[Rfam]
RNA sequence: CUCAUCACAACAAAUCCAGAUCUGUGUCCAGCAGUCCUGAUCCACCAGAGUAUUCGUACUAUGGCUGUGUUUCGGUUGUUAUUGCUGGACAUCUCGACGAUACAUGGAGCCAUCACGGAGUCUUUCUUUUUCUCUUCUCAUGGUGUCAAUUUCCGGUCGACAGAUCUCAGAGGGAAUCUCAAGCAGCCCGGUUUUCUUUUAAUUUCAUUAAUAAUAGAUUAACAUUCUACCUUGAGCUCCCUUCUCCUUUGCGGGUUGGUGAGCUCGGUGAGAUGGCCGGGUGUCUGUUGUGGGCGUCAUAUUCCACCUCCCUUUACCGAUUAUGGCCGUCGGCUGAUGAGGUUAGGGAAAAACCAUGACUUGCCAACAUCA
Numbered sequence: 001c002u003c004a005u006c007a008c009a010a011c012a013a014a015u016c017c018a019g020a021u022c023u024g025u026g027u028c029c030a031g032c033a034g035u036c037c038u039g040a041u042c043c044a045c046c047a048g049a050g051u052a053u054u055c056g057u058a059c060u061a062u063g064g065c066u067g068u069g070u071u072u073c074g075g076u077u078g079u080u081a082u083u084g085c086u087g088g089a090c091a092u093c094u095c096g097a098c099g100a101u102a103c104a105u106g107g108a109g110c111c112a113u114c115a116c117g118g119a120g121u122c123u124u125u126c127u128u129u130u131u132c133u134c135u136u137c138u139c140a141u142g143g144u145g146u147c148a149a150u151u152u153c154c155g156g157u158c159g160a161c162a163g164a165u166c167u168c169a170g171a172g173g174g175a176a177u178c179u180c181a182a183g184c185a186g187c188c189c190g191g192u193u194u195u196c197u198u199u200u201a202a203u204u205u206c207a208u209u210a211a212u213a214a215u216a217g218a219u220u221a222a223c224a225u226u227c228u229a230c231c232u233u234g235a236g237c238u239c240c241c242u243u244c245u246c247c248u249u250u251g252c253g254g255g256u257u258g259g260u261g262a263g264c265u266c267g268g269u270g271a272g273a274u275g276g277c278c279g280g281g282u283g284u285c286u287g288u289u290g291u292g293g294g295c296g297u298c299a300u301a302u303u304c305c306a307c308c309u310c311c312c313u314u315u316a317c318c319g320a321u322u323a324u325g326g327c328c329g330u331c332g333g334c335u336g337a338u339g340a341g342g343u344u345a346g347g348g349a350a351a352a353a354c355c356a357u358g359a360c361u362u363g364c365c366a367a368c369a370u371c372a
Stems, first nucleotide, its partner, number of pairs: 018167008026090006033083003036078001037075004042069001044066001045064003049060004098159004105148003109144005180287002186282006202269003293365003296360005309349005316343003325335004
Description
The family of this 372-nucleotide RNA from Paracoccidioides brasiliensis is "A. fumigatus sRNA Afu_309". By type it is a small RNA. On this family, see Jochl et al., Nucleic Acids Res 2008: "Small ncRNA transcriptome analysis from Aspergillus fumigatus suggests a novel mechanism for regulation of protein synthesis". Lineage of the source: Eukaryota > Opisthokonta > Eurotiomycetidae > Onygenales > Paracoccidioides. The match comes from Rfam's covariance-model search (208 bits).